[Rfam]
RNA sequence: UGGGACUAACCCGUAGAACCGAACUUGUGUGCCUCAGUGCUCCCUCCACAAGUUUGCAUCUAUGGGUAUGUUCCGU
Numbered sequence: 001u002g003g004g005a006c007u008a009a010c011c012c013g014u015a016g017a018a019c020c021g022a023a024c025u026u027g028u029g030u031g032c033c034u035c036a037g038u039g040c041u042c043c044c045u046c047c048a049c050a051a052g053u054u055u056g057c058a059u060c061u062a063u064g065g066g067u068a069u070g071u072u073c074c075g076u
Stems, first nucleotide, its partner, number of pairs: 002074005010066003015061003020056010